[Rfam]
RNA sequence: AUUGCGGCCCGGGCCCCUCUGACGAUCAUGAUGAUCGUGAUGUCGGACCGCAUCG
Numbered sequence: 001a002u003u004g005c006g007g008c009c010c011g012g013g014c015c016c017c018u019c020u021g022a023c024g025a026u027c028a029u030g031a032u033g034a035u036c037g038u039g040a041u042g043u044c045g046g047a048c049c050g051c052a053u054c055g
Base pairs, nucleotide, nucleotide: 006049007048009046010045011044012043022038023037024036025035026034027033028032
RNA: terC RNA